[Rfam]
RNA sequence: CUGAUCUUGUGAUCAGUGUUUUAGAAUGCAGGCAAACUGUUUAUUACCUAUAAUAGCUAGUUGAAACUUCAAAAAAUGAUCCUAUUUUCUUUAAUUAGUUUAGUGGAUACAAAACUUUCCGCCGUGAGAAAAGUGCCUGAAACACAAUUGUUUCAGGCACUCGGAAUUAUUGAGACAUUAGGCUCAAUAAUUAGUCAUGGAACUUCGAAGAAGUUCGCUGACGUCCGUACUCACCUAAGGAAAGUUUUUUAGAAGUCUUUUUCUUCAAUCUGAUAUACUGAUUGCAAGAUCAGUG
Dot-bracket structure: ..((((((((.((((((((.(((((.((....((...((....((..................))....)).....))....))......((.....................................................))(((....(((.((.....(((((((((.(.....))))))))))..((((..((.((((...)))).))..))))....)).).......(((......))).............)).)))))))).)))))))).))))))))....
A member of the RNA family "Streptococcus sRNA 8" from Streptococcus australis, 295 nucleotides long. The source organism's lineage runs through Bacteria, Bacillati, Lactobacillales, Streptococcus and Streptococcus australis. Pairs were carried over by alignment from the consensus structure, which was predicted with RNAfold. The literature on the family includes a 2013 paper in PLoS One by Tesorero et al., "Novel regulatory small RNAs in Streptococcus pyogenes".